[Rfam]
Nucleotides: 092
Stems, first nucleotide, its partner, number of pairs: 004089005
Number, partner (000 for none) and nucleotide at each position: 001000a002000g003000u004089g005088g006087u007086c008085a009000a010000g011000u012000g013000a014000u015000g016000a017000u018000u019000a020000a021000a022000a023000a024000a025000g026000c027000a028000u029000a030000g031000u032000u033000c034000a035000g036000c037000u038000g039000a040000u041000a042000a043000u044000c045000u046000c047000c048000a049000u050000g051000a052000u053000u054000a055000u056000u057000a058000a059000a060000c061000u062000g063000c064000u065000a066000g067000u068000c069000u070000u071000u072000c073000g074000c075000u076000c077000c078000u079000a080000u081000c082000u083000g084000a085008u086007g087006a088005c089004c090000c091000c092000c
Small nucleolar RNA snR60/Z15/Z230/Z193/J17: a 92-nucleotide RNA sequence from Durio zibethinus.
Lineage of the source: Eukaryota > Viridiplantae > Mesangiospermae > Helicteroideae > Durio.
By type it is a C/D-box small nucleolar RNA.
Rfam 15.1 lists 3,592 matches to the family in 1,855 species.
The family is grouped with related families in Rfam's "SNORD77 clan".
The pairing is the family consensus, mapped onto this sequence.
Rfam links the family to the GO terms RNA processing and nucleolus.
On this family, see Lowe and Eddy, Science 1999: "A computational screen for methylation guide snoRNAs in yeast".